The family of this 121-nucleotide sequence from a Desulfobacteraceae bacterium is "Group II catalytic intron D1-D4-2". NCBI's taxonomy places the organism under Bacteria, Pseudomonadati, Thermodesulfobacteriota, Desulfobacteria, Desulfobacteraceae. The match comes from Rfam's covariance-model search (108 bits). A reference for the family is Lehmann and Schmidt (2003), "Group II introns: structure and catalytic versatility of large natural ribozymes", Crit Rev Biochem Mol Biol. About the family: Group II introns are found in rRNA, tRNA and mRNA of organelles in fungi, plants and protists, and also in mRNA in bacteria. The family has 144 seed sequences and 1,231 matches in Rfam 15.1. The base pairs follow the family's consensus structure.
RNA sequence: GAGGGAAGGCCCCUCGGAGCCGGCUUGCAGGCGCAGGCUUCAAACCACCUAAGGCUGCGUUGGUAAAGAGCCUUUUGUGGUGAGCGUUUAGGAAAAGUCACGGCAUAGGAUCGUGGCAGGU
Dot-bracket structure: (((((.....)))))((((((.((.(....).)).))))))....(.((((((((.(((..(((.....)))...))).)).....))))))....((((((.........))))))..).